[Rfam]
A member of the RNA family "Metazoan signal recognition particle RNA" from Coptotermes formosanus, 298 nucleotides long. A reference for the family is Rosenblad et al. (2003), "SRPDB: Signal Recognition Particle Database", Nucleic Acids Res. Rfam 15.1 lists 383,523 matches to the family in 1,221 species. The base pairs follow the family's consensus structure, which is taken from published work. Rfam links the family to the GO terms signal recognition particle, endoplasmic reticulum targeting and SRP-dependent cotranslational protein targeting to membrane, signal sequence recognition.
RNA sequence: GCUGGGAGUCGUGGCGUGCUCCUGUAAUCUAGCUACUAGGAAGCCGGAUGUCGAGGAUGAUUUGAGGCCGGGAGUACUGGUGCUCAGUGCCCCACGUUGACCUGGCGUCCGCGCUAAGCUCAACAUCAAUAUGGGCGCCCUGGGGGAGCUCGGGGUGGCCAGGUUGGCUAAGGAGAGGCGAACCGGGCCAGGGGGGAAACCCAGCAGCCAGAAGUCUCCGUGCUGAGCAGUAGUGGGAUCGCGCCUGGGAGUAGGAGCUGGGUGGCAGCCUGACCAACAGAGUCAGACCGACAUCUUU
Numbered sequence: 001g002c003u004g005g006g007a008g009u010c011g012u013g014g015c016g017u018g019c020u021c022c023u024g025u026a027a028u029c030u031a032g033c034u035a036c037u038a039g040g041a042a043g044c045c046g047g048a049u050g051u052c053g054a055g056g057a058u059g060a061u062u063u064g065a066g067g068c069c070g071g072g073a074g075u076a077c078u079g080g081u082g083c084u085c086a087g088u089g090c091c092c093c094a095c096g097u098u099g100a101c102c103u104g105g106c107g108u109c110c111g112c113g114c115u116a117a118g119c120u121c122a123a124c125a126u127c128a129a130u131a132u133g134g135g136c137g138c139c140c141u142g143g144g145g146g147a148g149c150u151c152g153g154g155g156u157g158g159c160c161a162g163g164u165u166g167g168c169u170a171a172g173g174a175g176a177g178g179c180g181a182a183c184c185g186g187g188c189c190a191g192g193g194g195g196g197a198a199a200c201c202c203a204g205c206a207g208c209c210a211g212a213a214g215u216c217u218c219c220g221u222g223c224u225g226a227g228c229a230g231u232a233g234u235g236g237g238a239u240c241g242c243g244c245c246u247g248g249g250a251g252u253a254g255g256a257g258c259u260g261g262g263u264g265g266c267a268g269c270c271u272g273a274c275c276a277a278c279a280g281a282g283u284c285a286g287a288c289c290g291a292c293a294u295c296u297u298u
Stems, first nucleotide, its partner, number of pairs: 001044003004023006028041003046296008058285006066275002069272004077268003081264008091255002094252002097249001101248002104245005109237002112235005118228005124222003127166004132161003136157009168172001175218005184211001186209003193202003